[Rfam]
RNA sequence: CCUGCAUGGACCGAUCGACGGGUCGUACAGGUCGGGAUGUGACUCCGGACGAUUCCGGCGUUGAACCACGCA
Numbered sequence: 001c002c003u004g005c006a007u008g009g010a011c012c013g014a015u016c017g018a019c020g021g022g023u024c025g026u027a028c029a030g031g032u033c034g035g036g037a038u039g040u041g042a043c044u045c046c047g048g049a050c051g052a053u054u055c056c057g058g059c060g061u062u063g064a065a066c067c068a069c070g071c072a
Base pairs, nucleotide, nucleotide: 001031002030003029004028034067035066041062042061043060045058046057047056048055